[Rfam]
RNA sequence: UGCAGUUCUCGGGUGACACACCUGGAACCAGAGAGGAGGGAGCCUGAUUCCAGAGUGUGUCACCCAAGAACAGCC
Numbered sequence: 001u002g003c004a005g006u007u008c009u010c011g012g013g014u015g016a017c018a019c020a021c022c023u024g025g026a027a028c029c030a031g032a033g034a035g036g037a038g039g040g041a042g043c044c045u046g047a048u049u050c051c052a053g054a055g056u057g058u059g060u061c062a063c064c065c066a067a068g069a070a071c072a073g074c075c
Base pairs, nucleotide, nucleotide: 002074003073005071006070007069008068009067011065012064013063014062015061016060017059019057020056021055022053024051025050026049027048029046030045031044
Dot-bracket structure: .((.(((((.(((((((.((((.((((.(((............))).)))).).))).))))))).))))).)).